[Rfam]
RNA sequence: UUUUCAGUUCAAAGGCAUAGCAGAAGUGUUCAUGGCUGGCCAUGUCAGAUUCCAAUGAAUCUUUGAAUUCUGCU
Numbered sequence: 001u002u003u004u005c006a007g008u009u010c011a012a013a014g015g016c017a018u019a020g021c022a023g024a025a026g027u028g029u030u031c032a033u034g035g036c037u038g039g040c041c042a043u044g045u046c047a048g049a050u051u052c053c054a055a056u057g058a059a060u061c062u063u064u065g066a067a068u069u070c071u072g073c074u
Stems, first nucleotide, its partner, number of pairs: 014041003019074007028036001047062006
This 74-nucleotide sequence from Alligator sinensis belongs to the Rfam family "Mammalian CPEB3 ribozyme".
Lineage of the source: Eukaryota > Bilateria > Euteleostomi > Archelosauria > Alligator.